[Rfam]
RNA sequence: AUUCUUUCUAUCAUGUAUCUCUGAUUGAUGCAGCCUCAAAUACUUCA
Number, nucleotide and partner (000 for none) at each position: 001a000002u000003u000004c000005u000006u000007u000008c000009u000010a025011u024012c023013a022014u000015g000016u000017a000018u000019c000020u000021c000022u013023g012024a011025u010026u000027g000028a000029u000030g000031c000032a044033g043034c000035c000036u000037c000038a000039a000040a000041u000042a000043c033044u032045u000046c000047a000
RNA: Plastid-ycf3 group II-D1 intron
Organism: Vitis vinifera